[Rfam]
Background
This 78-nucleotide RNA sequence from Streptococcus sp. DD12 belongs to the Rfam family "L17 ribosomal protein downstream element".

RNA sequence: UGAGUGUUACGAUGAUGGUCCUAUGAAGUAGGACUUAGUCUAGCUCUGGUCUACCGCUGUGCCGUCGGAGUACAGCGG
Dot-bracket structure: .((((.....(((...((((((.......))))))..)))..)))).......(((((((((.......)))))))))